Source information: This 72-nucleotide sequence from Albula goreensis belongs to the Rfam family "mir-124 microRNA precursor family". Taxonomically the source falls in Albula (Eukaryota, Metazoa, Gnathostomata, Actinopteri). The family's consensus secondary structure was predicted with PFOLD. Gene Ontology terms of the family: RISC complex and miRNA-mediated post-transcriptional gene silencing. A reference for the family is Lai et al. (2003), "Computational identification of Drosophila microRNA genes", Genome Biol.

RNA sequence: CGCUCUGCGUGUUCGCCGCGGACCUUGAUUUAAUAUACAUACAAUUAAGGCACGCGGUGAAUGCCAAGAGAG
Numbered sequence: 001c002g003c004u005c006u007g008c009g010u011g012u013u014c015g016c017c018g019c020g021g022a023c024c025u026u027g028a029u030u031u032a033a034u035a036u037a038c039a040u041a042c043a044a045u046u047a048a049g050g051c052a053c054g055c056g057g058u059g060a061a062u063g064c065c066a067a068g069a070g071a072g
Stems, first nucleotide, its partner, number of pairs: 003070004009064008018055003023050008